[Rfam]
RNA sequence: ACAAAAUGAAAAGCGAUUUUUCGUAUAUUCUUGGGAAUCGGCCCGAGAGUCUCUACAAGGUCACCGUAAUGAUCUGGCUACGAAAAGAGAGAAGAAGUAC
Numbered sequence: 001a002c003a004a005a006a007u008g009a010a011a012a013g014c015g016a017u018u019u020u021u022c023g024u025a026u027a028u029u030c031u032u033g034g035g036a037a038u039c040g041g042c043c044c045g046a047g048a049g050u051c052u053c054u055a056c057a058a059g060g061u062c063a064c065c066g067u068a069a070u071g072a073u074c075u076g077g078c079u080a081c082g083a084a085a086a087g088a089g090a091g092a093a094g095a096a097g098u099a100c
Stems, first nucleotide, its partner, number of pairs: 018086008029048007058075006
Rfam assigns this 100-nucleotide RNA sequence from Paenibacillus selenitireducens to the family "Purine riboswitch aptamer". The base pairs follow the family's consensus structure, which is taken from published work. The source organism's lineage runs through Bacteria, Bacillati, Bacillota, Bacilli and Paenibacillus. Riboswitches are metabolite binding domains within certain messenger RNAs that serve as precision sensors for their corresponding targets. Rfam links the family to the GO term purine nucleobase biosynthetic process. The family has 133 seed sequences and 4,097 matches in Rfam 15.1.